Source information:
Rfam assigns this 107-nucleotide RNA sequence from Alteromonas sp. V450 to the family "Ribosomal S15 leader". The family's consensus secondary structure is taken from published work. The match comes from Rfam's covariance-model search (66 bits). Lineage of the source: Bacteria > Pseudomonadati > Pseudomonadota > Alteromonadaceae > Alteromonas. The family's RNA type in Rfam is cis-regulatory leader.
RNA sequence: CCGCUUUGCUGAAUUAGUGAUCGGCGAAGCAUUAAUAUUAGGAGAAUGAUAUGUCACUAACUAAAGCAGAAACCGCAAACAUCAUUGCUGAGUACGGCGUUAAAGAA
Numbered sequence: 001c002c003g004c005u006u007u008g009c010u011g012a013a014u015u016a017g018u019g020a021u022c023g024g025c026g027a028a029g030c031a032u033u034a035a036u037a038u039u040a041g042g043a044g045a046a047u048g049a050u051a052u053g054u055c056a057c058u059a060a061c062u063a064a065a066g067c068a069g070a071a072a073c074c075g076c077a078a079a080c081a082u083c084a085u086u087g088c089u090g091a092g093u094a095c096g097g098c099g100u101u102a103a104a105g106a107a
Stems, first nucleotide, its partner, number of pairs: 007026006039060001041058002044055001